[Rfam]
Small nucleolar RNA F1/F2/snoR5a: a 139-nucleotide RNA from Paspalum vaginatum. A search with the family's covariance model found it, with a score of 150 bits. Gene Ontology terms of the family: nucleolus and RNA processing. Rfam describes the family as follows. This family contains F1, F2 and snoR5a sequences, all of which are members of the the H/ACA class of snoRNA that guide the sites of modification of uridines to pseudouridines.
RNA sequence: AAAUGCCAUUUGGUAUCUGACAUGCAGUCAUUUUUGUGAUUGUGUGUCUCGAAACAUGGCAGAAAACAAGGGGGAACGGUUCUUGCGACACUGGUUGCUCAUUUAUGAGCUUUCAGUUACUAUAUGCCCGUUUACAUGU
Number, nucleotide and partner (000 for none) at each position: 001a000002a000003a000004u061005g060006c059007c058008a057009u056010u000011u000012g000013g000014u000015a000016u000017c000018u000019g048020a047021c046022a045023u044024g043025c042026a041027g040028u039029c038030a037031u000032u000033u000034u000035u000036g000037u030038g029039a028040u027041u026042g025043u024044g023045u022046g021047u020048c019049u000050c000051g000052a000053a000054a000055c000056a009057u008058g007059g006060c005061a004062g000063a000064a000065a000066a000067c000068a000069a000070g000071g000072g000073g000074g000075a132076a131077c130078g129079g128080u000081u000082c000083u000084u000085g000086c000087g000088a000089c000090a117091c116092u115093g114094g113095u000096u000097g110098c109099u108100c000101a000102u000103u000104u000105a000106u000107g000108a099109g098110c097111u000112u000113u094114c093115a092116g091117u090118u000119a000120c000121u000122a000123u000124a000125u000126g000127c000128c079129c078130g077131u076132u075133u000134a000135c000136a000137u000138g000139u000